[Rfam]
RNA sequence: CUGAGAACAAUAUCCUGAUGCUGAAUGAGUGUGUUGAAGGAAACUCCAGCAUCAGUGAUUUUGUUGCCAG
Number, nucleotide and partner (000 for none) at each position: 001c000002u000003g000004a000005g000006a065007a064008c063009a062010a061011u000012a059013u058014c057015c055016u054017g053018a052019u051020g050021c049022u048023g047024a000025a000026u000027g000028a000029g000030u000031g000032u000033g000034u000035u000036g000037a000038a000039g000040g000041a000042a000043a000044c000045u000046c000047c023048a022049g021050c020051a019052u018053c017054a016055g015056u000057g014058a013059u012060u000061u010062u009063g008064u007065u006066g000067c000068c000069a000070g000
RNA: mir-338 microRNA precursor family